[Rfam]
RNA sequence: CUGAAUAAUGGACAAACCCGUUGUGAAGCGGGGACGCAAAGCCUUGGAGACUUUGAAUAAAGUCAGUCCGGUUGCAAUA
Numbered sequence: 001c002u003g004a005a006u007a008a009u010g011g012a013c014a015a016a017c018c019c020g021u022u023g024u025g026a027a028g029c030g031g032g033g034a035c036g037c038a039a040a041g042c043c044u045u046g047g048a049g050a051c052u053u054u055g056a057a058u059a060a061a062g063u064c065a066g067u068c069c070g071g072u073u074g075c076a077a078u079a
Stems, first nucleotide, its partner, number of pairs: 013036001017032006040073004046069003049064006
The family of this 79-nucleotide RNA from Candidatus Apopatosoma intestinale is "c-di-GMP-I riboswitch aptamer".
The source organism's lineage runs through Bacteria, Bacillati, Bacillota, Clostridia and Candidatus Apopatosoma.
The base pairs follow the family's consensus structure, which is taken from published work.